[Rfam]
The family of this 121-nucleotide RNA from Cryomorpha ignava is "Group II catalytic intron D1-D4-2".
Rfam describes the family as follows. Group II introns are found in rRNA, tRNA and mRNA of organelles in fungi, plants and protists, and also in mRNA in bacteria.
For this family Rfam cites "The ins and outs of group II introns" (Bonen and Vogel, Trends Genet, 2001).
The match comes from Rfam's covariance-model search (96 bits).
Rfam links the family to the GO term Group II intron splicing.
RNA sequence: GAUGGUAGGUCCAUCAGAGUCGUUGUAUAGGCGAUGGCUCUAAACCACCCAAAGGUGCUGUCCCGCCUGGGCGGGAUGGUAUUGAGCGUUUGGGAGAAUCCGAUCCAUGAGGUCGGCAGGU
Numbered sequence: 001g002a003u004g005g006u007a008g009g010u011c012c013a014u015c016a017g018a019g020u021c022g023u024u025g026u027a028u029a030g031g032c033g034a035u036g037g038c039u040c041u042a043a044a045c046c047a048c049c050c051a052a053a054g055g056u057g058c059u060g061u062c063c064c065g066c067c068u069g070g071g072c073g074g075g076a077u078g079g080u081a082u083u084g085a086g087c088g089u090u091u092g093g094g095a096g097a098a099u100c101c102g103a104u105c106c107a108u109g110a111g112g113u114c115g116g117c118a119g120g121u
Base pairs, nucleotide, nucleotide: 001015002014003013004012005011016041017040018039019038020037021036023034024033025032026031046120048094049093050092051091052090053089054083055082057080058079059078061076062075063074064073065072066071100116101115102114103113104112
Dot-bracket structure: (((((.....)))))((((((.((((....)))).))))))....(.((((((((.(((.((((((....)))))).))).)).....)))))).....(((((.......)))))...).